[Rfam]
RNA sequence: CCCUUGGAGCGUUACAUCAAACGAAAGUAGUCGCAGUAUGGCAAAAUCGGAUGCUAUGAACAGGGAA
Dot-bracket structure: ((((....(((((........(((.....(((.......)))....)))))))).......))))..
This 67-nucleotide RNA sequence belongs to the Rfam family "RAGATH-18 RNA".
About the family: Actinobacteria, Firmicutes, Fusobacteria, Thermotogae (1 example).
Rfam's curators put it in the seed alignment.